[Rfam]
RNA sequence: GCAAUAAAGGCUUGCAAGGGUGGUCGGCUUAUCUCCCGAAGGGAGGUGAUGCCAUGGAGGUUUAUCAAGCGCUUUCAUUAAUGUUCACAUUCGGGAUGUUCAUUAUCGCGCUGCUGAAUUUCCUCAACAAGAAAUAGACCGCCCUCGCUAUAGGUAGCGGUCUAUUUCUGACUGUAAUACCUCGUGCCGCCGCCCUUAAAAGCGGCUAUUGCAAGUGGAGUCGUGUUGCCGCACGGCUC
Numbered sequence: 001g002c003a004a005u006a007a008a009g010g011c012u013u014g015c016a017a018g019g020g021u022g023g024u025c026g027g028c029u030u031a032u033c034u035c036c037c038g039a040a041g042g043g044a045g046g047u048g049a050u051g052c053c054a055u056g057g058a059g060g061u062u063u064a065u066c067a068a069g070c071g072c073u074u075u076c077a078u079u080a081a082u083g084u085u086c087a088c089a090u091u092c093g094g095g096a097u098g099u100u101c102a103u104u105a106u107c108g109c110g111c112u113g114c115u116g117a118a119u120u121u122c123c124u125c126a127a128c129a130a131g132a133a134a135u136a137g138a139c140c141g142c143c144c145u146c147g148c149u150a151u152a153g154g155u156a157g158c159g160g161u162c163u164a165u166u167u168c169u170g171a172c173u174g175u176a177a178u179a180c181c182u183c184g185u186g187c188c189g190c191c192g193c194c195c196u197u198a199a200a201a202g203c204g205g206c207u208a209u210u211g212c213a214a215g216u217g218g219a220g221u222c223g224u225g226u227u228g229c230c231g232c233a234c235g236g237c238u239c
Base pairs, nucleotide, nucleotide: 001212002211003210004209005208009188010187011186013184014148015147017145018144019143020142022139024137029049030048031047033045034044035043036042037041056123057122058121059120060119061118062117069084070083071082093115094114096112190205191204192203193202218239219238220237221236222235223234224233225232226231

The record is a 239-nucleotide RNA sequence from Paenibacillus sp. CAA11, which matches "BsrG" in Rfam. It is annotated as a small RNA. The match comes from Rfam's covariance-model search (82 bits). Its family is annotated with autolysis and toxin activity in the Gene Ontology. Rfam's curators write: bsrE, bsrG and bsrH pair through intermolecular interactions with antisense sRNAs. They form type I toxin/antitoxin system that includes an mRNA encoding for a short, toxic peptide (bsrE, bsrG and bsrH) and an antitoxin that is comprised of an antisense RNA. bsrG encodes a 39-amino-acid toxin, and the 180 nucleotide antisense sRNA called SR4 acts as the antitoxin (they overlap by 123 nucleotides). SR4 interaction with the 3'UTR of bsrG RNA promotes bsrG degradation and inhibits its translation. BsrG interferes with cell envelope biosynthesis, causes membrane invaginations and delocalisation of the cell wall synthesis and initiates autolysis. bsrE RNA encodes 30 amino-acid toxin peptide. Its antitoxin gene, SR5 overlaps by 112 nucleotides at the 3' end of bsrE. SR5 also overlaps bsrG from nucleotide 163 to 52 (Rfam overlap check). The antitoxin SR5 promotes bsrE degradation but unlike SR4 it does not directly inhibits toxin mRNA translation.